[Rfam]
RNA sequence: AAAUAUAUAAUUAAAUACCCUCGUAUAUAAUGGGAAUAUGGCCCAUAAGUAUCUACCCAAUUUACCGUAAAUAAUUGGACUAUGAGGGGAAGUGGAAAUACC
Numbered sequence: 001a002a003a004u005a006u007a008u009a010a011u012u013a014a015a016u017a018c019c020c021u022c023g024u025a026u027a028u029a030a031u032g033g034g035a036a037u038a039u040g041g042c043c044c045a046u047a048a049g050u051a052u053c054u055a056c057c058c059a060a061u062u063u064a065c066c067g068u069a070a071a072u073a074a075u076u077g078g079a080c081u082a083u084g085a086g087g088g089g090a091a092g093u094g095g096a097a098a099u100a101c102c
Base pairs, nucleotide, nucleotide: 018088019087020086021085022084023083024082025081028048030046031045032044033043034042057078058077059076060075061074063073064072
Notes
Shown here is a 102-nucleotide RNA from Bacillus sp. OK048, a member of the family "Purine riboswitch aptamer". Rfam links the family to the GO term purine nucleobase biosynthetic process.